Description
This 81-nucleotide RNA sequence from Pipistrellus kuhlii belongs to the Rfam family "mir-542 microRNA precursor family". Its family is annotated with RISC complex and miRNA-mediated post-transcriptional gene silencing in the Gene Ontology. Pairs were carried over by alignment from the consensus structure, which was predicted with RNAalifold. NCBI's taxonomy places the organism under Eukaryota, Deuterostomia, Vertebrata, Euteleostomi, Pipistrellus. On this family, see Jin et al., BMC Mol Biol 2009: "Characterization of bovine miRNAs by sequencing and bioinformatics analysis".
RNA sequence: CCUCAGACAUCUCGGGGAUCAUCAUGUCACUGUGAUACCACUCUGCAGUUGUGACAGAUUGAUAACUGAAAGGUCUGGGAG
Numbered sequence: 001c002c003u004c005a006g007a008c009a010u011c012u013c014g015g016g017g018a019u020c021a022u023c024a025u026g027u028c029a030c031u032g033u034g035a036u037a038c039c040a041c042u043c044u045g046c047a048g049u050u051g052u053g054a055c056a057g058a059u060u061g062a063u064a065a066c067u068g069a070a071a072g073g074u075c076u077g078g079g080a081g
Stems, first nucleotide, its partner, number of pairs: 002079007012069004018063004025056006032049002